Record summary:
Rfam assigns this 578-nucleotide part of an RNA from Methanotorris igneus to the family "Archaeal large subunit ribosomal RNA". The family's consensus secondary structure is taken from published work. Rfam links the family to the GO terms ribosome and structural constituent of ribosome. Taxonomically the source falls in Methanotorris igneus (Archaea, Methanococci, Methanococcales, Methanotorris).
[Rfam]
RNA sequence: CCCCCAGUGGGAAGCGAAGACCCCGUGGAGCUUUACUGCAGCCUGCCGUUGGGGCAUGGUCGUGGGUGCACAGCGUAGGUGGGAGCCGUCGAAGCCGCCUCUCCGGGGGCGGUGGAGGCGCCCAUGGGACACCACCCACCCAUGGCCAUGUCCCUAACCCCGGAUAGGGGGACACCGGUAGGUGGGCAGUUUGGCUGGGGCGGCACCCUCCUAAAAAGGCAUCAGGAGGGCCCAAAGGUCGGCUCAGGCGGGUCAGGACUCCGCCGUGGAGUGCAAGGGCAAAAGCCGGCCUGACUUGGUCGGUAACAGAGGCCGACCAAGAGGCGAAAGCCGGGCCUAGCGAACCCCUGUGCCUCACCGAUGGGGGCCAGGGAUGACAGAAAAGCUACCCCGGGGAUAACAGAGUUGUCGCGGGCAAGAGCCCAUAUCGACCCCGCGGCUUGCUACAUCGAUGUCGGUUCUUCCCAUCCUGGGUCUGCAGCAGGACCCAAGGGUGGGGCUGUUCGCCCAUUAAAGGGGAUCGUGAGCUGGGUUUAGACCGUCGUGAGACAGGUUGGUUGCUAUCUGCUGGGGGUGUU
Numbered sequence: 001c002c003c004c005c006a007g008u009g010g011g012a013a014g015c016g017a018a019g020a021c022c023c024c025g026u027g028g029a030g031c032u033u034u035a036c037u038g039c040a041g042c043c044u045g046c047c048g049u050u051g052g053g054g055c056a057u058g059g060u061c062g063u064g065g066g067u068g069c070a071c072a073g074c075g076u077a078g079g080u081g082g083g084a085g086c087c088g089u090c091g092a093a094g095c096c097g098c099c100u101c102u103c104c105g106g107g108g109g110c111g112g113u114g115g116a117g118g119c120g121c122c123c124a125u126g127g128g129a130c131a132c133c134a135c136c137c138a139c140c141c142a143u144g145g146c147c148a149u150g151u152c153c154c155u156a157a158c159c160c161c162g163g164a165u166a167g168g169g170g171g172a173c174a175c176c177g178g179u180a181g182g183u184g185g186g187c188a189g190u191u192u193g194g195c196u197g198g199g200g201c202g203g204c205a206c207c208c209u210c211c212u213a214a215a216a217a218g219g220c221a222u223c224a225g226g227a228g229g230g231c232c233c234a235a236a237g238g239u240c241g242g243c244u245c246a247g248g249c250g251g252g253u254c255a256g257g258a259c260u261c262c263g264c265c266g267u268g269g270a271g272u273g274c275a276a277g278g279g280c281a282a283a284a285g286c287c288g289g290c291c292u293g294a295c296u297u298g299g300u301c302g303g304u305a306a307c308a309g310a311g312g313c314c315g316a317c318c319a320a321g322a323g324g325c326g327a328a329a330g331c332c333g334g335g336c337c338u339a340g341c342g343a344a345c346c347c348c349u350g351u352g353c354c355u356c357a358c359c360g361a362u363g364g365g366g367g368c369c370a371g372g373g374a375u376g377a378c379a380g381a382a383a384a385g386c387u388a389c390c391c392c393g394g395g396g397a398u399a400a401c402a403g404a405g406u407u408g409u410c411g412c413g414g415g416c417a418a419g420a421g422c423c424c425a426u427a428u429c430g431a432c433c434c435c436g437c438g439g440c441u442u443g444c445u446a447c448a449u450c451g452a453u454g455u456c457g458g459u460u461c462u463u464c465c466c467a468u469c470c471u472g473g474g475u476c477u478g479c480a481g482c483a484g485g486a487c488c489c490a491a492g493g494g495u496g497g498g499g500c501u502g503u504u505c506g507c508c509c510a511u512u513a514a515a516g517g518g519g520a521u522c523g524u525g526a527g528c529u530g531g532g533u534u535u536a537g538a539c540c541g542u543c544g545u546g547a548g549a550c551a552g553g554u555u556g557g558u559u560g561c562u563a564u565c566u567g568c569u570g571g572g573g574g575u576g577u578u
Base pairs, nucleotide, nucleotide: 001574002573003572004571005570006569007568008567010566011565012564014561015560022395023394024393025392027391028390029387030386031385032384033383035190036189037188038187042182043181044180045179046178047177048176051154052153053152054151055150056149057148058147059146060145061144062143063142064141065140066139067138068137078136079135080134081133082132085119086118087117097110098109099108100107101106158170159169160168161167193206194204195203196202207229208228209227210226211225212224232335233334238290239289240288241287242286243285244270245269247265248264249263250262251261252260271280272279295321296320297319298318299317300316301315302314303313323332325330346373347372348371349370350369352368353367354366355365356364404445405444406443408442409439410438411437412436413435414434415433419429420428456531457529458528459527460526461523462520463519464518465517466516469494470493473488474487475486476485477484497509498508499507500506537555538554539553540552541550542549543548